[Rfam]
RNA: sul1 RNA
Organism: Aureimonas jatrophae
RNA sequence: AACGGACCCGGCCCACGCCGGGUGGCUAUGCCGGGCGCCGAUCCCCCGGCCAAUC
Numbered sequence: 001a002a003c004g005g006a007c008c009c010g011g012c013c014c015a016c017g018c019c020g021g022g023u024g025g026c027u028a029u030g031c032c033g034g035g036c037g038c039c040g041a042u043c044c045c046c047c048g049g050c051c052a053a054u055c
Stems, first nucleotide, its partner, number of pairs: 006023007030050006